[Rfam]
RNA: TPP riboswitch aptamer (THI element)
Organism: Longispora fulva
RNA sequence: AAGAGAACCCACGGGAGUCCGGUAGACCGGGCUGAGAGGGCGGAUGUGAGCCGCCGACCGUAGAACCUGAUCCGGAUCAUGCCGGCGCAGGGAGGAGAUUCACCAUGCUC
Numbered sequence: 001a002a003g004a005g006a007a008c009c010c011a012c013g014g015g016a017g018u019c020c021g022g023u024a025g026a027c028c029g030g031g032c033u034g035a036g037a038g039g040g041c042g043g044a045u046g047u048g049a050g051c052c053g054c055c056g057a058c059c060g061u062a063g064a065a066c067c068u069g070a071u072c073c074g075g076a077u078c079a080u081g082c083c084g085g086c087g088c089a090g091g092g093a094g095g096a097g098a099u100u101c102a103c104c105a106u107g108c109u110c
Stems, first nucleotide, its partner, number of pairs: 009095002011061004017032005039055005066091004072085004